Background:
Rfam assigns this 194-nucleotide RNA sequence from Paenibacillus swuensis to the family "c-di-AMP riboswitch aptamer (ydaO/yuaA leader)". Gene Ontology terms of the family: regulation of gene expression and cyclic-di-AMP binding. Lineage of the source: Bacteria > Bacilli > Caryophanales > Paenibacillaceae > Paenibacillus. Rfam describes the family as follows. This family represents a conserved RNA structure found upstream of the ydaO and yuaA genes in Bacillus subtilis and related genes in other bacteria. The ydaO/yuaA element is thought to act as a genetic 'off' switch for the ydaO and yuaA genes in its native state. It is believed that the element may be triggered during osmotic shock leading to activation of ydaO, a predicted amino acid transporter gene, and members of the yuaA-yubG operon which code for KtrA and KtrB K+ transporters.

RNA sequence: CCAUUCGUAACGCUGAAUUUUCUGGAAUGGAAAACGGGGGAACCAAUUGAUUGCACUGUACCGAUGUGAGAGUCGGUGCAGCCGCGAUCCGGGGUGAAUCCUGAAAGAAGCCGCCAUGGAUGCUUCUUUCGGGUAGGGCGACUCUCACCGCCCGAAUCCGUCAGCUAACCUCGUAAGCGUCGUGAACCGCAGGU
Numbered sequence: 001c002c003a004u005u006c007g008u009a010a011c012g013c014u015g016a017a018u019u020u021u022c023u024g025g026a027a028u029g030g031a032a033a034a035c036g037g038g039g040g041a042a043c044c045a046a047u048u049g050a051u052u053g054c055a056c057u058g059u060a061c062c063g064a065u066g067u068g069a070g071a072g073u074c075g076g077u078g079c080a081g082c083c084g085c086g087a088u089c090c091g092g093g094g095u096g097a098a099u100c101c102u103g104a105a106a107g108a109a110g111c112c113g114c115c116a117u118g119g120a121u122g123c124u125u126c127u128u129u130c131g132g133g134u135a136g137g138g139c140g141a142c143u144c145u146c147a148c149c150g151c152c153c154g155a156a157u158c159c160g161u162c163a164g165c166u167a168a169c170c171u172c173g174u175a176a177g178c179g180u181c182g183u184g185a186a187c188c189g190c191a192g193g194u
Base pairs, nucleotide, nucleotide: 011179012178013177014176018033019032020031021030022029034174035173036172037171038170039169044091092159093158094157100133101132102131103130104129105128106127107126108125109124110123111122136153137152138151139150